[Rfam]
RNA sequence: UGCUUUUGAUCGGGCCCCCCACUUAGUGUGUUUGACAAGCUGAGUUGGACACUCUAUACUAAUGAGUGUCAGUUUGUCAAAUACCCCAAGUGAGGUGUCACUUGUC
Number, nucleotide and partner (000 for none) at each position: 001u000002g000003c000004u000005u000006u000007u000008g000009a000010u000011c000012g000013g000014g000015c000016c000017c000018c000019c000020c092021a091022c090023u089024u000025a000026g086027u000028g084029u083030g082031u081032u080033u079034g078035a077036c076037a075038a074039g073040c072041u071042g000043a000044g000045u000046u000047g000048g070049a069050c068051a067052c000053u065054c064055u000056a000057u000058a000059c000060u000061a000062a000063u000064g054065a053066g000067u051068g050069u049070c048071a041072g040073u039074u038075u037076g036077u035078c034079a033080a032081a031082u030083a029084c028085c000086c026087c000088a000089a023090g022091u021092g020093a000094g000095g000096u000097g000098u000099c000100a000101c000102u000103u000104g000105u000106c000
Shown here is a 106-nucleotide sequence from Sphaeramia orbicularis, a member of the family "mir-223 microRNA precursor family". The base pairs follow the family's consensus structure, which was predicted with RNAalifold. Taxonomically the source falls in Sphaeramia (Eukaryota, Actinopterygii, Actinopteri, Neoteleostei). Rfam 15.1 lists 674 matches to the family in 638 species.